[Rfam]
The record is a 117-nucleotide RNA, which matches "Small nucleolar RNA SNORA71" in Rfam. The members of this family belong to the H/ACA class of snoRNAs which bind a number of proteins (including dyskerin, Gar1p and Nop10p) to form snoRNP complexes. This class of snoRNAs are thought to guide the sites of modification of uridines to pseudouridines by forming direct base pairing interactions with substrate RNAs. This family includes U71 (SNORA71), ACA39 (SNORA39) and ACA60 (SNORA60). For this family Rfam cites "The family of box ACA small nucleolar RNAs is defined by an evolutionarily conserved secondary structure and ubiquitous sequence elements essential for RNA accumulation" (Ganot et al., Genes Dev, 1997). It is one of the family's seed sequences. Its family is annotated with nucleolus and RNA processing in the Gene Ontology.
RNA sequence: CCCUAUAUUCGAAAGUUAUCCUGGUCAUUGACAGUGCAGGGAGAGAAACUGCUGAAAGCAUUCCCCCUUGUUUGGAGGGUCCACUCCUGUCCCUUCUAAACUCUGGAGUUUUCCACA
Numbered sequence: 001c002c003c004u005a006u007a008u009u010c011g012a013a014a015g016u017u018a019u020c021c022u023g024g025u026c027a028u029u030g031a032c033a034g035u036g037c038a039g040g041g042a043g044a045g046a047a048a049c050u051g052c053u054g055a056a057a058g059c060a061u062u063c064c065c066c067c068u069u070g071u072u073u074g075g076a077g078g079g080u081c082c083a084c085u086c087c088u089g090u091c092c093c094u095u096c097u098a099a100a101c102u103c104u105g106g107a108g109u110u111u112u113c114c115a116c117a
Stems, first nucleotide, its partner, number of pairs: 001041004006036004014029003018025002051114001054113006070101005075095005